[Rfam]
RNA sequence: UGCAGCCUUGUCAAAUUCGGUGCUUCCUCUACAAUGGACCGCACUGGCCAAAAUGGCUGCCACAGUGAACCUGUAGUUCAUGGGCCUCAUCUCUUUUAUAUUGGUGUUGGGGAUACAUUUGUACUACAGACAAUA
Dot-bracket structure: .((((............((((((...((.......))...))))))..........))))............((((((......(((((..................)))))........).)))))........

Overview:
Rfam assigns this 135-nucleotide RNA from Salmo trutta to the family "Small nucleolar RNA SNORA5". The family's RNA type in Rfam is H/ACA-box small nucleolar RNA. Lineage of the source: Eukaryota > Eumetazoa > Salmonidae > Salmoninae > Salmo. ACA5 is a member of the H/ACA class of snoRNA that guide the sites of modification of uridines to pseudouridines.